RNA sequence: GGUAGUAGCAAAUAUUCAAAUGAGAACUUUGAAGACUGAAGUGGAGAAGGGUUCCGCAAGAACAGUGAUUGGUUGCGGGUUAGUCGAUCCUAAGAGAUAGGGAAACUCUGUUUCAAAGCAGCGCAUUUUUUCGCGCUCUCUAUCGAAAGGGAAUCUGGUUAACAUUCCAGAACUUAAGCUAGCAUGUUAAAGCGGCGACGCAAAAGAACUCGGUGACGUUGGCAAGGGGCCUGGGAAGAGUUUUCUUUUCUUUUUAACACGUAAACGACUGUGGAAUCGAUUUGCUCGGCGAAGCAGUUGCAUGCGUGGAAGAGCAGGACCAUUUUGGUCUUGUCCGGUGUCCUCUUAACGACCCUUGAAAAACCGAGGGAUUUUAUUAGUGUCUAGUUAAGUCGUACCCAUCACCGCAUCAGGUCUCCAAGGUGAACAGCCUCUAGUUGA
Numbered sequence: 001g002g003u004a005g006u007a008g009c010a011a012a013u014a015u016u017c018a019a020a021u022g023a024g025a026a027c028u029u030u031g032a033a034g035a036c037u038g039a040a041g042u043g044g045a046g047a048a049g050g051g052u053u054c055c056g057c058a059a060g061a062a063c064a065g066u067g068a069u070u071g072g073u074u075g076c077g078g079g080u081u082a083g084u085c086g087a088u089c090c091u092a093a094g095a096g097a098u099a100g101g102g103a104a105a106c107u108c109u110g111u112u113u114c115a116a117a118g119c120a121g122c123g124c125a126u127u128u129u130u131u132c133g134c135g136c137u138c139u140c141u142a143u144c145g146a147a148a149g150g151g152a153a154u155c156u157g158g159u160u161a162a163c164a165u166u167c168c169a170g171a172a173c174u175u176a177a178g179c180u181a182g183c184a185u186g187u188u189a190a191a192g193c194g195g196c197g198a199c200g201c202a203a204a205a206g207a208a209c210u211c212g213g214u215g216a217c218g219u220u221g222g223c224a225a226g227g228g229g230c231c232u233g234g235g236a237a238g239a240g241u242u243u244u245c246u247u248u249u250c251u252u253u254u255u256a257a258c259a260c261g262u263a264a265a266c267g268a269c270u271g272u273g274g275a276a277u278c279g280a281u282u283u284g285c286u287c288g289g290c291g292a293a294g295c296a297g298u299u300g301c302a303u304g305c306g307u308g309g310a311a312g313a314g315c316a317g318g319a320c321c322a323u324u325u326u327g328g329u330c331u332u333g334u335c336c337g338g339u340g341u342c343c344u345c346u347u348a349a350c351g352a353c354c355c356u357u358g359a360a361a362a363a364c365c366g367a368g369g370g371a372u373u374u375u376a377u378u379a380g381u382g383u384c385u386a387g388u389u390a391a392g393u394c395g396u397a398c399c400c401a402u403c404a405c406c407g408c409a410u411c412a413g414g415u416c417u418c419c420a421a422g423g424u425g426a427a428c429a430g431c432c433u434c435u436a437g438u439u440g441a
Stems, first nucleotide, its partner, number of pairs: 015033006034439004043419004049399002054078006063071002085395003089150002094144002096112003100109003120137003154171005174391004179387004184381002192201003209368006218353004224347006231338003234254006258308005268298005277289004315333007405414002421433004
Record summary: This 441-nucleotide part of an RNA from Allomyces macrogynus belongs to the Rfam family "Eukaryotic large subunit ribosomal RNA". On this family, see Yusupov et al., Science 2001: "Crystal structure of the ribosome at 5.5 A resolution". The family's consensus secondary structure is taken from published work. NCBI's taxonomy places the organism under Eukaryota, Blastocladiomycota, Blastocladiomycetes, Blastocladiaceae, Allomyces macrogynus.